The record is a 46-nucleotide RNA from Corvus moneduloides, which matches "Histone 3' UTR stem-loop" in Rfam.

RNA sequence: CCAAAGGCUCUUUUAAGAGCCACUACAACUACAGUUAAAAGACCUG
Numbered sequence: 001c002c003a004a005a006g007g008c009u010c011u012u013u014u015a016a017g018a019g020c021c022a023c024u025a026c027a028a029c030u031a032c033a034g035u036u037a038a039a040a041g042a043c044c045u046g
Stems, first nucleotide, its partner, number of pairs: 006021006
NCBI's taxonomy places the organism under Eukaryota, Euteleostomi, Amniota, Saurischia, Corvus.